Rfam assigns this 78-nucleotide sequence from Flavobacterium crassostreae to the family "Flavo-1 RNA". The base pairs follow the family's consensus structure, which is taken from published work. By type it is a small RNA.

[Rfam]
RNA sequence: CUCUAGCCCUGAUGGAAGCAAAAAUCCUUUAAGGCCAGGGUUUGGCCUUAAAGAUUGUAGCGUACAGCAGGAGGGAUU
Numbered sequence: 001c002u003c004u005a006g007c008c009c010u011g012a013u014g015g016a017a018g019c020a021a022a023a024a025u026c027c028u029u030u031a032a033g034g035c036c037a038g039g040g041u042u043u044g045g046c047c048u049u050a051a052a053g054a055u056u057g058u059a060g061c062g063u064a065c066a067g068c069a070g071g072a073g074g075g076a077u078u
Stems, first nucleotide, its partner, number of pairs: 009070003013066002018061002023056004029051008